Streptomyces RNA 3202: a 92-nucleotide RNA sequence from Streptomyces sp. NRRL WC-3618. About the family: Identified by deep sequencing of transcriptome at the end of exponential growth phase. Appears smaller on northern blot than sequencing transcript. This indicates processing step. Streptomyces specific.
RNA sequence: CCAAGUCCCGACGCAACCCCCCCCCGCGUCGGGACCUUCCCAGCCGGGCUUCGGCACCUAACCCCCCCCAGGUGCCGGGGCCCGGCUCACUU
Numbered sequence: 001c002c003a004a005g006u007c008c009c010g011a012c013g014c015a016a017c018c019c020c021c022c023c024c025c026g027c028g029u030c031g032g033g034a035c036c037u038u039c040c041c042a043g044c045c046g047g048g049c050u051u052c053g054g055c056a057c058c059u060a061a062c063c064c065c066c067c068c069c070a071g072g073u074g075c076c077g078g079g080g081c082c083c084g085g086c087u088c089a090c091u092u
Base pairs, nucleotide, nucleotide: 005035006034007033008032009031010030012028013027014026042087043086044085045084046083047082048081049080050079052077053076054075055074056073057072058071059070
Notes:
Taxonomically the source falls in Streptomyces (Bacteria, Bacillati, Kitasatosporales, Streptomycetaceae).